[Rfam]
RNA sequence: CACUCCUGUUUCUGCCUCAUACUCUUUCUACUUCCAUAGAUUAAUGGGUUCUAGUUAUGGAGAAGAUAAAGCCAGGGGAUGACCUUUCCACAACUUUGAUACACACGUGGAUGGGCUUCAUUGUCUGGAUCGUGAGAACACAUUGAAUGACUUCUUGCAAUUUCUAUAAUUGAGCAAGAAGACUCAAUGUCUCUCUAUAUUC
Numbered sequence: 001c002a003c004u005c006c007u008g009u010u011u012c013u014g015c016c017u018c019a020u021a022c023u024c025u026u027u028c029u030a031c032u033u034c035c036a037u038a039g040a041u042u043a044a045u046g047g048g049u050u051c052u053a054g055u056u057a058u059g060g061a062g063a064a065g066a067u068a069a070a071g072c073c074a075g076g077g078g079a080u081g082a083c084c085u086u087u088c089c090a091c092a093a094c095u096u097u098g099a100u101a102c103a104c105a106c107g108u109g110g111a112u113g114g115g116c117u118u119c120a121u122u123g124u125c126u127g128g129a130u131c132g133u134g135a136g137a138a139c140a141c142a143u144u145g146a147a148u149g150a151c152u153u154c155u156u157g158c159a160a161u162u163u164c165u166a167u168a169a170u171u172g173a174g175c176a177a178g179a180a181g182a183c184u185c186a187a188u189g190u191c192u193c194u195c196u197a198u199a200u201u202c
Base pairs, nucleotide, nucleotide: 003062004061005060006059016048017047018046019045020043021042023040024039025038072128073127074126075125076124078122079121080120081119083115084114085113087111088110089109090108091107134195135194136193137192140190141189142188143187144186151181152180153179154178155177158174161172
RNA: Small nucleolar RNA snR43
Organism: Lachancea kluyveri